[Rfam]
RNA sequence: AGAGUUGACUAGGCAACCGCCGCUUUUCUGCUAUCCCCUCUGGGGAAGACAGUCAAAGGGGAGGAAAGUCCGGGCUCCACAGGGCAGGGUGCCAGGUAAUUCCUGGGAGGCGCAAGCCUACGACAAGUGCAGCAGAGAGCAAACCGCCGAUGGCUUGUGUAUACCCCUUCAAUCCUUUAAGUUGCCUUCGGCUGCCAAGGCGUGAGACCGAUGAGCGUAGAUAGACUACGUGAUUCGGGCGAACCCUCGCAGCCAACAACGCGGCAGCUUUAAAGGCGAAGGGUAUAAUCGAGAUCAGGUAAGGGUGAAAGGGUGCGGUAAGAGCGCACCGCGCAGCUGGUAACAGUUUGUGGCAAGGUAAACUCCACCUGGAGCAAGGCCAAAUAGAGGUUCACAAAGUGCGGCUCGUACUGAACCCGGGUAGGCUGCUUGAGCCAGUGAGUGAUUGCUGGCCUAGAUGAAUGGUUGUCCACGACAGAACCCGGCUUACCGGUCAACUCCUUAA
Number, nucleotide and partner (000 for none) at each position: 001a000002g500003a499004g498005u497006u496007g495008a494009c493010u492011a000012g470013g469014c468015a467016a466017c465018c464019g000020c061021c060022g000023c058024u057025u056026u055027u000028c000029u000030g000031c000032u000033a000034u000035c000036c000037c000038c000039u000040c000041u000042g000043g000044g000045g000046a000047a000048g000049a000050c000051a000052g000053u000054c000055a026056a025057a024058g023059g000060g021061g020062a000063g000064g000065a000066a488067a487068g486069u000070c485071c484072g483073g482074g481075c374076u373077c372078c371079a000080c000081a000082g407083g406084g405085c404086a000087g370088g369089g368090u367091g366092c106093c105094a104095g103096g102097u000098a000099a000100u000101u000102c096103c095104u094105g093106g092107g121108a119109g118110g117111c116112g000113c000114a000115a000116g111117c110118c109119u108120a000121c107122g365123a364124c000125a000126a000127g363128u362129g359130c358131a000132g000133c000134a000135g000136a000137g000138a000139g000140c000141a000142a000143a000144c304145c303146g300147c299148c298149g000150a000151u297152g296153g295154c000155u293156u292157g000158u000159g000160u000161a000162u000163a000164c000165c000166c000167c000168u000169u000170c000171a000172a000173u000174c000175c000176u000177u000178u000179a000180a000181g000182u000183u000184g000185c000186c000187u000188u000189c000190g000191g000192c000193u000194g000195c000196c000197a000198a000199g000200g000201c000202g000203u000204g000205a000206g000207a000208c000209c000210g000211a000212u000213g000214a000215g000216c000217g000218u000219a000220g000221a000222u000223a000224g000225a000226c000227u000228a000229c000230g000231u000232g000233a000234u000235u000236c000237g000238g000239g000240c000241g000242a000243a000244c000245c000246c000247u000248c000249g000250c000251a000252g000253c000254c000255a000256a000257c000258a000259a000260c000261g000262c000263g000264g000265c000266a000267g000268c000269u000270u000271u000272a000273a000274a000275g000276g000277c000278g000279a000280a000281g000282g000283g000284u000285a000286u000287a000288a000289u000290c000291g000292a156293g155294a000295u153296c152297a151298g148299g147300u146301a000302a000303g145304g144305g000306u000307g000308a000309a000310a000311g000312g330313g329314u328315g327316c326317g325318g000319u000320a000321a000322g000323a000324g000325c317326g316327c315328a314329c313330c312331g354332c352333g351334c350335a349336g348337c346338u345339g344340g000341u000342a000343a000344c339345a338346g337347u000348u336349u335350g334351u333352g332353g000354c331355a000356a000357g000358g130359u129360a000361a000362a128363c127364u123365c122366c091367a090368c089369c088370u087371g078372g077373a076374g075375c000376a000377a000378g427379g426380c425381c424382a000383a000384a000385u000386a000387g000388a000389g417390g416391u415392u414393c413394a000395c000396a000397a000398a412399g411400u410401g409402c408403g000404g085405c084406u083407c082408g402409u401410a400411c399412u398413g393414a392415a391416c390417c389418c000419g000420g000421g000422u000423a000424g381425g380426c379427u378428g000429c000430u000431u000432g000433a000434g453435c452436c451437a450438g449439u448440g447441a446442g000443u000444g000445a000446u441447u440448g439449c438450u437451g436452g435453c434454c000455u000456a000457g000458a000459u000460g000461a000462a000463u000464g018465g017466u016467u015468g014469u013470c012471c000472a000473c000474g000475a000476c000477a000478g000479a000480a000481c074482c073483c072484g071485g070486c068487u067488u066489a000490c000491c000492g010493g009494u008495c007496a006497a005498c004499u003500c002501c000502u000503u000504a000505a000
Rfam assigns this 505-nucleotide RNA sequence from Candidatus Regiella insecticola to the family "Bacterial RNase P class A". The base pairs follow the family's consensus structure, which is taken from published work.